[Rfam]
RNA sequence: UAGGAAAGACAGGGUUCGGACCCCCUCCCCAAGCCCAGGGUAACCUUAGAUGUAGAGGGGAG
Numbered sequence: 001u002a003g004g005a006a007a008g009a010c011a012g013g014g015u016u017c018g019g020a021c022c023c024c025c026u027c028c029c030c031a032a033g034c035c036c037a038g039g040g041u042a043a044c045c046u047u048a049g050a051u052g053u054a055g056a057g058g059g060g061a062g
Stems, first nucleotide, its partner, number of pairs: 008041001010039001012036004016031001018029002022060006

Rfam assigns this 62-nucleotide RNA sequence from Prolemur simus to the family "Gag/pol translational readthrough site". The family's consensus secondary structure is taken from published work. The family's RNA type in Rfam is cis-regulatory element. Its family is annotated with viral translational readthrough in the Gene Ontology.